A member of the RNA family "Small nucleolar RNA ACA64" from Mauremys mutica, 128 nucleotides long. A reference for the family is Schattner et al. (2006), "A computational screen for mammalian pseudouridylation guide H/ACA RNAs", RNA. The family's consensus secondary structure was predicted with WAR. Lineage of the source: Eukaryota > Metazoa > Archelosauria > Testudinoidea > Mauremys. A search with the family's covariance model found it, with a score of 78 bits.
RNA sequence: ACUGUCUGAAAAGCACCUCUGGCCUCUGCAAUGGCUUCUGGGGAGAUAACUGCCUACAGCAACAGGAACAUUAAGCUUAUUGCCCACAGACCCAAUGUGUGGGGAAUAAAACCCAUGUUCCUAUAACU
Numbered sequence: 001a002c003u004g005u006c007u008g009a010a011a012a013g014c015a016c017c018u019c020u021g022g023c024c025u026c027u028g029c030a031a032u033g034g035c036u037u038c039u040g041g042g043g044a045g046a047u048a049a050c051u052g053c054c055u056a057c058a059g060c061a062a063c064a065g066g067a068a069c070a071u072u073a074a075g076c077u078u079a080u081u082g083c084c085c086a087c088a089g090a091c092c093c094a095a096u097g098u099g100u101g102g103g104g105a106a107u108a109a110a111a112c113c114c115a116u117g118u119u120c121c122u123a124u125a126a127c128u
Base pairs, nucleotide, nucleotide: 008050010047014043016041021036022035023034024033065121067119068118069117070116071115077109078108079107080106081105085099086098087097